TrxA 5' UTR thermometer: an 88-nucleotide RNA sequence from Yersinia ruckeri.
The literature on the family includes a 2016 paper in Proc Natl Acad Sci U S A by Righetti et al., "Temperature-responsive in vitro RNA structurome of Yersinia pseudotuberculosis".
The source organism's lineage runs through Bacteria, Pseudomonadota, Gammaproteobacteria, Enterobacterales and Yersinia ruckeri.
From the family's description: Involved in protection against oxidative stress.
Pairs were carried over by alignment from the consensus structure.
Rfam classes the family as an RNA thermoregulator.
RNA sequence: AACCUAAUGUUGGUUAAUGCUACAUCAACUAGGUAGACACAAUCCUUUGGAGUAGAACAUGAGCGAUAAAAUUAUUCAUCUGAGUGAC
Numbered sequence: 001a002a003c004c005u006a007a008u009g010u011u012g013g014u015u016a017a018u019g020c021u022a023c024a025u026c027a028a029c030u031a032g033g034u035a036g037a038c039a040c041a042a043u044c045c046u047u048u049g050g051a052g053u054a055g056a057a058c059a060u061g062a063g064c065g066a067u068a069a070a071a072u073u074a075u076u077c078a079u080c081u082g083a084g085u086g087a088c
Stems, first nucleotide, its partner, number of pairs: 008068005014062003020055004025050003031046003072087006